[Rfam]
Nucleotides: 080
Base pairs, nucleotide, nucleotide: 005076007074008073009072011071012070013069014068015067016066017065018064019063020062021061022060023059024058025057027055028054029053030052031051
Number, partner (000 for none) and nucleotide at each position: 001000g002000c003000c004000a005076g006000g007074a008073g009072g010000u011071g012070a013069u014068a015067u016066g017065u018064u019063u020062g021061a022060u023059a024058u025057u026000c027055g028054g029053u030052u031051g032000u033000u034000u035000u036000c037000c038000c039000c040000g041000c042000g043000u044000a045000a046000g047000a048000c049000g050000u051031c052030a053029a054028c055027u056000a057025a058024a059023u060022a061021u062020c063019a064018g065017a066016c067015a068014u069013a070012u071011u072009c073008c074007u075000a076005c077000a078000g079000a080000u
The record is an 80-nucleotide RNA sequence from Synaphobranchus kaupii, which matches "mir-190 microRNA precursor family" in Rfam. The literature on the family includes a 2006 paper in Nucleic Acids Res by Kloosterman et al., "Cloning and expression of new microRNAs from zebrafish". Clan: mir-50 clan. Rfam links the family to the GO terms RISC complex and miRNA-mediated post-transcriptional gene silencing.